[Rfam]
RNA sequence: UUUUUAUCAAGAGAGACUGAGGGACUGGCCCGAUGACGUCUCGGCAGCGGGUAACCUGUGCCAAAUCCAGCGAGCGGUCUGCUCGAAAGAUGAAAA
Numbered sequence: 001u002u003u004u005u006a007u008c009a010a011g012a013g014a015g016a017c018u019g020a021g022g023g024a025c026u027g028g029c030c031c032g033a034u035g036a037c038g039u040c041u042c043g044g045c046a047g048c049g050g051g052u053a054a055c056c057u058g059u060g061c062c063a064a065a066u067c068c069a070g071c072g073a074g075c076g077g078u079c080u081g082c083u084c085g086a087a088a089g090a091u092g093a094a095a096a
Base pairs, nucleotide, nucleotide: 001096002095003094004093005092006091007090008089013042014041015040016039017038021031022030023029025070026069027068028067043062044061045060046059048058049057050056051055066088071085072084073083074082075081076080
Dot-bracket structure: ((((((((....(((((...(((.[[[[)))......)))))((((.((((...))))))))...(]]]]((((((...))))))..)))))))))
The family of this 96-nucleotide RNA sequence from Exiguobacterium chiriqhucha is "SAM riboswitch aptamer (S box leader)".
The match comes from Rfam's covariance-model search (81 bits).